[Rfam]
RNA sequence: CCCAGAGGUAUUGAUUGUGAAUGUUUUAAUGUGUGCUUUGCACACGCCAUCACUUUACACCGACCUGCGCAGAUGCGCAGGUUUUUUUU
Numbered sequence: 001c002c003c004a005g006a007g008g009u010a011u012u013g014a015u016u017g018u019g020a021a022u023g024u025u026u027u028a029a030u031g032u033g034u035g036c037u038u039u040g041c042a043c044a045c046g047c048c049a050u051c052a053c054u055u056u057a058c059a060c061c062g063a064c065c066u067g068c069g070c071a072g073a074u075g076c077g078c079a080g081g082u083u084u085u086u087u088u089u
Stems, first nucleotide, its partner, number of pairs: 016062001017060003023051001030046006063082008

Rfam assigns this 89-nucleotide RNA from Kluyvera cryocrescens to the family "OmrA-B family". The family's consensus secondary structure was predicted with WAR. It scores 76 bits against the family's covariance model. Rfam 15.1 lists 153 matches to the family in 128 species. The organism belongs to Kluyvera, within Bacteria.